Annotation: A member of the RNA family "bZIP non canonical Hac1/Xbp1 intron" from Neoarthrinium moseri, 68 nucleotides long. The literature on the family includes a 2011 paper in RNA Biol by Hooks and Griffiths-Jones, "Conserved RNA structures in the non-canonical Hac1/Xbp1 intron".
[Rfam]
RNA sequence: UCUUCUACCGACGCGACACAACAUCCAGCAGCGGUGUUGUGCGACCAGCAGUGUCCGUCGGUAGAAGU
Numbered sequence: 001u002c003u004u005c006u007a008c009c010g011a012c013g014c015g016a017c018a019c020a021a022c023a024u025c026c027a028g029c030a031g032c033g034g035u036g037u038u039g040u041g042c043g044a045c046c047a048g049c050a051g052u053g054u055c056c057g058u059c060g061g062u063a064g065a066a067g068u
Stems, first nucleotide, its partner, number of pairs: 002067005009060005020038006043055003

The family has 112 seed sequences and 1,325 matches in Rfam 15.1. Rfam describes the family as follows. bZIP intron RNA is a non-canonical intron that was first reported in HAC1 gene in yeast and XBP1 gene in Metazoa.